[Rfam]
RNA sequence: GGGUGCUCGAAGACCGUACCAGAAGUGUUUUUGACAUGGACAUGUAAUUUUGUUGUUUCGAAAUCAUGUAAAUGCACUAUCUGGUACGACACUUCGGCGCCU
Numbered sequence: 001g002g003g004u005g006c007u008c009g010a011a012g013a014c015c016g017u018a019c020c021a022g023a024a025g026u027g028u029u030u031u032u033g034a035c036a037u038g039g040a041c042a043u044g045u046a047a048u049u050u051u052g053u054u055g056u057u058u059c060g061a062a063a064u065c066a067u068g069u070a071a072a073u074g075c076a077c078u079a080u081c082u083g084g085u086a087c088g089a090c091a092c093u094u095c096g097g098c099g100c101c102u
Base pairs, nucleotide, nucleotide: 008096009095010094011093015088016087017086018085019084020083021082022081023080025077027075028074030072031071032070040069041068042067043066044065